Annotation:
Betaproteobacteria-1 RNA: a 122-nucleotide RNA sequence from Thauera sp. 28.
[Rfam]
RNA sequence: CGCACAUGUGGACGGGAGUACAGACGCCAGCGCAUGCGCGAUAUAUGUCGAACUGGGGGAAAGUCCUGAAACAUCGAUGAGGGGUGGCGAAGCUAGCGCCCUUGGACGAACGGCUGGCGGGU
Numbered sequence: 001c002g003c004a005c006a007u008g009u010g011g012a013c014g015g016g017a018g019u020a021c022a023g024a025c026g027c028c029a030g031c032g033c034a035u036g037c038g039c040g041a042u043a044u045a046u047g048u049c050g051a052a053c054u055g056g057g058g059g060a061a062a063g064u065c066c067u068g069a070a071a072c073a074u075c076g077a078u079g080a081g082g083g084g085u086g087g088c089g090a091a092g093c094u095a096g097c098g099c100c101c102u103u104g105g106a107c108g109a110a111c112g113g114c115u116g117g118c119g120g121g122u
Stems, first nucleotide, its partner, number of pairs: 001040003005036006027056004047078005063107004080103006092118006
Dot-bracket structure: (((.((((((................[[[[)))))).)))......(((((.]]]]......{{{{.......))))).((((((......[[[[[[))))))}}}}.....]]]]]]....
The sequence is in the family's curated seed alignment. The source organism's lineage runs through Bacteria, Pseudomonadota, Rhodocyclales, Zoogloeaceae and Thauera.